A member of the RNA family "Flavo-1 RNA" from Flavobacterium pygoscelis, 79 nucleotides long.
[Rfam]
RNA sequence: UUUUAGCCCCGAUGGAAACGGAAAUCCUUUACUUUUUUUCUUAAAAAAGAAAAGAUUGGAGAGCACAGCGGGAAUAGCU
Numbered sequence: 001u002u003u004u005a006g007c008c009c010c011g012a013u014g015g016a017a018a019c020g021g022a023a024a025u026c027c028u029u030u031a032c033u034u035u036u037u038u039u040c041u042u043a044a045a046a047a048a049g050a051a052a053a054g055a056u057u058g059g060a061g062a063g064c065a066c067a068g069c070g071g072g073a074a075u076a077g078c079u
Stems, first nucleotide, its partner, number of pairs: 009071003013067002019061001023057004029052002032049005

It scores 70 bits against the family's covariance model. Lineage of the source: Bacteria > Bacteroidota > Flavobacteriia > Flavobacteriales > Flavobacterium.